The family of this 81-nucleotide RNA sequence from Oncorhynchus kisutch is "mir-16 microRNA precursor family". It scores 38 bits against the family's covariance model. Rfam links the family to the GO terms RISC complex and miRNA-mediated post-transcriptional gene silencing.
[Rfam]
RNA sequence: CAUAAACUCCUGCAGCAUAAAUACUGGAGGCUGAGACAGGUCCUGUCUCAGCCUCCAGUAUUUAUGCUGCAGUAGUUUAUG
Numbered sequence: 001c002a003u004a005a006a007c008u009c010c011u012g013c014a015g016c017a018u019a020a021a022u023a024c025u026g027g028a029g030g031c032u033g034a035g036a037c038a039g040g041u042c043c044u045g046u047c048u049c050a051g052c053c054u055c056c057a058g059u060a061u062u063u064a065u066g067c068u069g070c071a072g073u074a075g076u077u078u079a080u081g
Base pairs, nucleotide, nucleotide: 001081002080003079005077006076007075011071012070013069014068015067016066017065018064020062021061022060023059024058025057026056027055028054029053030052031051032050033049034048035047036046037045038044